[Rfam]
RNA sequence: GGCUACUCUGAUGGUAGUGGAACUUACUAAUGUUAGUGUCACUAAAGUUGGUGUACAACCCCUCACUGCUAAAUUUGACUGGCUUCAA
Number, nucleotide and partner (000 for none) at each position: 001g084002g083003c082004u081005a080006c000007u078008c077009u000010g076011a075012u000013g000014g000015u071016a067017g066018u065019g064020g063021a000022a000023c000024u000025u053026a052027c051028u000029a049030a048031u000032g000033u000034u000035a000036g000037u000038g000039u000040c000041a000042c000043u000044a000045a000046a000047g000048u030049u029050g000051g027052u026053g025054u000055a000056c000057a000058a000059c000060c000061c000062c000063u020064c019065a018066c017067u016068g000069c000070u000071a015072a000073a000074u000075u011076u010077g008078a007079c000080u005081g004082g003083c002084u001085u000086c000087a000088a000

Y RNA: an 88-nucleotide RNA sequence from Microcebus murinus. By type it is a non-coding RNA gene. The organism belongs to Microcebus, within Eukaryota. The family's consensus secondary structure is taken from published work.